[Rfam]
RNA: Small nucleolar RNA SNORA31
Organism: Turnix velox
RNA sequence: GUGCAUCCAUUUGACAGACCUGGAGCAAACAGUCGUUGCUUCUCUGGUUCUUUCUGUGAUGCAACAGUAAGAGGUUCCUUGCGCUUUCUACCUGCUUCACCUGGUGGCAGCUUGGAUUGAAGAAAGGAACACAAAC
Numbered sequence: 001g002u003g004c005a006u007c008c009a010u011u012u013g014a015c016a017g018a019c020c021u022g023g024a025g026c027a028a029a030c031a032g033u034c035g036u037u038g039c040u041u042c043u044c045u046g047g048u049u050c051u052u053u054c055u056g057u058g059a060u061g062c063a064a065c066a067g068u069a070a071g072a073g074g075u076u077c078c079u080u081g082c083g084c085u086u087u088c089u090a091c092c093u094g095c096u097u098c099a100c101c102u103g104g105u106g107g108c109a110g111c112u113u114g115g116a117u118u119g120a121a122g123a124a125a126g127g128a129a130c131a132c133a134a135a136c
Stems, first nucleotide, its partner, number of pairs: 002063006013052001017049004023041006076128005084119001087116004092110005